[Rfam]
The record is a 134-nucleotide RNA sequence from Pogona vitticeps, which matches "Small nucleolar RNA SNORA41" in Rfam. Its family is annotated with nucleolus and RNA processing in the Gene Ontology. The match comes from Rfam's covariance-model search (93 bits). Rfam describes the family as follows. ACA41 is a member of the H/ACA class of snoRNA that guide the sites of modification of uridines to pseudouridines. The literature on the family includes a 2001 paper in EMBO J by Huttenhofer et al., "RNomics: an experimental approach that identifies 201 candidates for novel, small, non-messenger RNAs in mouse".
RNA sequence: UUCCACAGCUACUGGCCUGAAACUGCUCUGUACUGUAGCAGUUGCAGUAUUCCCACUGUGGAAGAUCAGCAGUUACACUGUAUGGUGCUUCUUUUCUCAAACAAGAGAAGACAACUGCUGUGUAACGGACAUAA
Numbered sequence: 001u002u003c004c005a006c007a008g009c010u011a012c013u014g015g016c017c018u019g020a021a022a023c024u025g026c027u028c029u030g031u032a033c034u035g036u037a038g039c040a041g042u043u044g045c046a047g048u049a050u051u052c053c054c055a056c057u058g059u060g061g062a063a064g065a066u067c068a069g070c071a072g073u074u075a076c077a078c079u080g081u082a083u084g085g086u087g088c089u090u091c092u093u094u095u096c097u098c099a100a101a102c103a104a105g106a107g108a109a110g111a112c113a114a115c116u117g118c119u120g121u122g123u124a125a126c127g128g129a130c131a132u133a134a
Stems, first nucleotide, its partner, number of pairs: 003061004017047003021043005075123004089113001091110006